The record is a 160-nucleotide RNA sequence from Papaver nudicaule, which matches "U4 spliceosomal RNA" in Rfam. It is annotated as a spliceosomal small nuclear RNA. The base pairs follow the family's consensus structure, which is taken from published work. The family is grouped with related families in Rfam's "U4 clan". For this family Rfam cites "Cryo-EM Structure of a Pre-catalytic Human Spliceosome Primed for Activation" (Bertram et al., Cell, 2017).
RNA sequence: AUCUUUGCGCUUGGGGCAAUGACGCAGCUAAUGAGGUAAUAACUGAGGCGCGUCAAUUGCUGGUUGAAAACUAUUUCCAAACCCCCUCCUCGUGCCUUUAGGGAAAGACCGGGGCCUUGGAGAAUUUCUGGAAGGGCUCCCUCUAAUCAAGGGUAAAGCC
Numbered sequence: 001a002u003c004u005u006u007g008c009g010c011u012u013g014g015g016g017c018a019a020u021g022a023c024g025c026a027g028c029u030a031a032u033g034a035g036g037u038a039a040u041a042a043c044u045g046a047g048g049c050g051c052g053u054c055a056a057u058u059g060c061u062g063g064u065u066g067a068a069a070a071c072u073a074u075u076u077c078c079a080a081a082c083c084c085c086c087u088c089c090u091c092g093u094g095c096c097u098u099u100a101g102g103g104a105a106a107g108a109c110c111g112g113g114g115c116c117u118u119g120g121a122g123a124a125u126u127u128c129u130g131g132a133a134g135g136g137c138u139c140c141c142u143c144u145a146a147u148c149a150a151g152g153g154u155a156a157a158g159c160c
Stems, first nucleotide, its partner, number of pairs: 021054005027049003035044003086122004092116001095113003135160004